[Rfam]
RNA sequence: CUAGCACUCUCACAGAUCUUCCCCUUGGCAGUGGGGCCAAGAUUUGGUAGCUGGUGCUGAAAGAAAGCCCUUGACUGCAUCCUUGCCCUGCUACUGUACCAGUGGCAGCUGUCACUCAGUGGGACAUAG
Numbered sequence: 001c002u003a004g005c006a007c008u009c010u011c012a013c014a015g016a017u018c019u020u021c022c023c024c025u026u027g028g029c030a031g032u033g034g035g036g037c038c039a040a041g042a043u044u045u046g047g048u049a050g051c052u053g054g055u056g057c058u059g060a061a062a063g064a065a066a067g068c069c070c071u072u073g074a075c076u077g078c079a080u081c082c083u084u085g086c087c088c089u090g091c092u093a094c095u096g097u098a099c100c101a102g103u104g105g106c107a108g109c110u111g112u113c114a115c116u117c118a119g120u121g122g123g124a125c126a127u128a129g
Base pairs, nucleotide, nucleotide: 003058004057005056006055007054008053013046014045015044017042018041019040020039022036023035024034025033068123069122070121071119072118073117074116076114077113079112080111083108084107085106086105087104088102089101090100
RNA: Small nucleolar RNA SNORA30/SNORA37 family